[Rfam]
RNA sequence: UUGCAGAGUGGGAAUGAAGUUCUCCCCUGGUAGACAAUACCUAAACUGCUUAUAAAGCUAAUGACUUCUGUUUAAAU
Numbered sequence: 001u002u003g004c005a006g007a008g009u010g011g012g013a014a015u016g017a018a019g020u021u022c023u024c025c026c027c028u029g030g031u032a033g034a035c036a037a038u039a040c041c042u043a044a045a046c047u048g049c050u051u052a053u054a055a056a057g058c059u060a061a062u063g064a065c066u067u068c069u070g071u072u073u074a075a076a077u
Stems, first nucleotide, its partner, number of pairs: 010026004016068006048058003
Dot-bracket structure: .........[[[[..((((((.]]]].....................(((.....)))....)))))).........
RNA: Fluoride riboswitch aptamer (crcB RNA motif)
Organism: Anaerocolumna jejuensis